A member of the RNA family "Small nucleolar RNA SNORD60" from Hymenochirus boettgeri, 80 nucleotides long.
RNA sequence: UGCCUGUGAUGUACCCAAAAUUCUGACACCUCAUAUGAAGCUGUCAACAGCUUUGAUUAUUACUUCUUGGGCUGAGGCAU
Numbered sequence: 001u002g003c004c005u006g007u008g009a010u011g012u013a014c015c016c017a018a019a020a021u022u023c024u025g026a027c028a029c030c031u032c033a034u035a036u037g038a039a040g041c042u043g044u045c046a047a048c049a050g051c052u053u054u055g056a057u058u059a060u061u062a063c064u065u066c067u068u069g070g071g072c073u074g075a076g077g078c079a080u
Stems, first nucleotide, its partner, number of pairs: 001079004040051004
Its family is annotated with RNA processing and nucleolus in the Gene Ontology. It is annotated as a C/D-box small nucleolar RNA. The family is grouped with related families in Rfam's "SNORD60 clan".